[Rfam]
RNA sequence: GCUGUUUUCGGGUGGAUGACUCCGCAAUUUCAAUACUUGACACACUGAAAGAAAUUGCACAGUAUCCAUCUGCAAUCCGCC
Numbered sequence: 001g002c003u004g005u006u007u008u009c010g011g012g013u014g015g016a017u018g019a020c021u022c023c024g025c026a027a028u029u030u031c032a033a034u035a036c037u038u039g040a041c042a043c044a045c046u047g048a049a050a051g052a053a054a055u056u057g058c059a060c061a062g063u064a065u066c067c068a069u070c071u072g073c074a075a076u077c078c079g080c081c
Stems, first nucleotide, its partner, number of pairs: 009072009019063002024058008
The record is an 81-nucleotide RNA sequence from Lates calcarifer, which matches "mir-363 microRNA precursor family" in Rfam. The family is grouped with related families in Rfam's "mir-19 clan". Taxonomically the source falls in Lates (Eukaryota, Chordata, Euteleostomi, Carangaria).